RNA sequence: AAACCUAGGCCUAGGCCUAGGCCUAGGCCUAGGCCUAGGCCUAGAGCCUGAGCCUAGAGCCUAGGCCUAGGCCUGAGCCUAGAGCCUAGCCUAGAGCCCUAGGCCUAGAGCCUAAGCCUAAACCUAG
Numbered sequence: 001a002a003a004c005c006u007a008g009g010c011c012u013a014g015g016c017c018u019a020g021g022c023c024u025a026g027g028c029c030u031a032g033g034c035c036u037a038g039g040c041c042u043a044g045a046g047c048c049u050g051a052g053c054c055u056a057g058a059g060c061c062u063a064g065g066c067c068u069a070g071g072c073c074u075g076a077g078c079c080u081a082g083a084g085c086c087u088a089g090c091c092u093a094g095a096g097c098c099c100u101a102g103g104c105c106u107a108g109a110g111c112c113u114a115a116g117c118c119u120a121a122a123c124c125u126a127g
Base pairs, nucleotide, nucleotide: 006050007049008048009047010046012043013042014041015040020035021034022033023032068120070118071117072116074114079108080107081106082105087101088100089099